[Rfam]
RNA: Small nucleolar RNA Z279/snoR105/snoR108
RNA sequence: GGGAUAUGAUGAGUGGUACAAAUCUCGCUUUAUUUGCGAGAGGGGCGCCCGCCUUGCCUGUUACGACAAUAUUGGGCGUUCCAAUCUUUACCGAUCUGAUCCC
Numbered sequence: 001g002g003g004a005u006a007u008g009a010u011g012a013g014u015g016g017u018a019c020a021a022a023u024c025u026c027g028c029u030u031u032a033u034u035u036g037c038g039a040g041a042g043g044g045g046c047g048c049c050c051g052c053c054u055u056g057c058c059u060g061u062u063a064c065g066a067c068a069a070u071a072u073u074g075g076g077c078g079u080u081c082c083a084a085u086c087u088u089u090a091c092c093g094a095u096c097u098g099a100u101c102c103c
Stems, first nucleotide, its partner, number of pairs: 001103004014093005024040005042082008058074001060072002